PreQ1 (pre queuosine) riboswitch aptamer: a 45-nucleotide RNA sequence from Ligilactobacillus ubinensis. The base pairs follow the family's consensus structure. NCBI's taxonomy places the organism under Bacteria, Bacillota, Bacilli, Lactobacillales, Ligilactobacillus. Rfam describes the family as follows. This family is a bacterial riboswitch that binds to the metabolite preQ1, an intermediate in the biosynthesis of the modified nucleoside queuosine from GTP. One example of this riboswitch is located in the leader of the Bacillus subtilis ykvJKLM (queCDEF) operon which encodes four genes necessary for queuosine production. PreQ1 binding to the riboswitch aptamer is thought to induce premature transcription termination within the leader to down-regulate expression of these genes.
RNA sequence: UACAAGGUGGUUCGCAAUUAUCCCACCUAAAAAAACUAAGGAGAU
Numbered sequence: 001u002a003c004a005a006g007g008u009g010g011u012u013c014g015c016a017a018u019u020a021u022c023c024c025a026c027c028u029a030a031a032a033a034a035a036c037u038a039a040g041g042a043g044a045u
Stems, first nucleotide, its partner, number of pairs: 006027005016037001